[Rfam]
RNA sequence: GGUUUGCAGGCAGUGUAGUUAGCUGAUUGUACCCCUCAGCCCACAAUCACUAACGCCACUGCCAUCAAAAC
Numbered sequence: 001g002g003u004u005u006g007c008a009g010g011c012a013g014u015g016u017a018g019u020u021a022g023c024u025g026a027u028u029g030u031a032c033c034c035c036u037c038a039g040c041c042c043a044c045a046a047u048c049a050c051u052a053a054c055g056c057c058a059c060u061g062c063c064a065u066c067a068a069a070a071c
Stems, first nucleotide, its partner, number of pairs: 003069004009063002012060004018054005024049007